[Rfam]
RNA: Bacterial small subunit ribosomal RNA, nucleotides 567 to 921
Organism: Dyella choica
RNA sequence: GGCGUAAAGCGUGCGUAGGCGGUCUUUUAAGUCUGCUGUGAAAUCCCCGGGCUCAACCUGGGAAUGGCAGUGGAUACUGGGAGGCUAGAGUGUGUCAGAGGAUGGUGGAAUUCCCGGUGUAGCGGUGAAAUGCGUAGAGAUCGGGAGGAACAUCAGUGGCGAAGGCGGCCAUCUGGGACAACACUGACGCUGAGGCACGAAAGCGUGGGGAGCAAACAGGAUUAGAUACCCUGGUAGUCCACGCCCUAAACGAUGCGAACUGGAUGUUGGUCUCAACUCGGAGAUCAGUGUCGAAGCUAACGCGUUAAGUUCGCCGCCUGGGGAGUACGGUCGCAAGACUGAAACUCAAAGGAAU
Numbered sequence: 001g002g003c004g005u006a007a008a009g010c011g012u013g014c015g016u017a018g019g020c021g022g023u024c025u026u027u028u029a030a031g032u033c034u035g036c037u038g039u040g041a042a043a044u045c046c047c048c049g050g051g052c053u054c055a056a057c058c059u060g061g062g063a064a065u066g067g068c069a070g071u072g073g074a075u076a077c078u079g080g081g082a083g084g085c086u087a088g089a090g091u092g093u094g095u096c097a098g099a100g101g102a103u104g105g106u107g108g109a110a111u112u113c114c115c116g117g118u119g120u121a122g123c124g125g126u127g128a129a130a131u132g133c134g135u136a137g138a139g140a141u142c143g144g145g146a147g148g149a150a151c152a153u154c155a156g157u158g159g160c161g162a163a164g165g166c167g168g169c170c171a172u173c174u175g176g177g178a179c180a181a182c183a184c185u186g187a188c189g190c191u192g193a194g195g196c197a198c199g200a201a202a203g204c205g206u207g208g209g210g211a212g213c214a215a216a217c218a219g220g221a222u223u224a225g226a227u228a229c230c231c232u233g234g235u236a237g238u239c240c241a242c243g244c245c246c247u248a249a250a251c252g253a254u255g256c257g258a259a260c261u262g263g264a265u266g267u268u269g270g271u272c273u274c275a276a277c278u279c280g281g282a283g284a285u286c287a288g289u290g291u292c293g294a295a296g297c298u299a300a301c302g303c304g305u306u307a308a309g310u311u312c313g314c315c316g317c318c319u320g321g322g323g324a325g326u327a328c329g330g331u332c333g334c335a336a337g338a339c340u341g342a343a344a345c346u347c348a349a350a351g352g353a354a355u
Stems, first nucleotide, its partner, number of pairs: 001318003009315001011198004016192001018191003022085007030078002032074008046062006089185003093180004100174007107151001111147008122133003159166002203244006212238002217233004255314006263292012296303002320347003329340004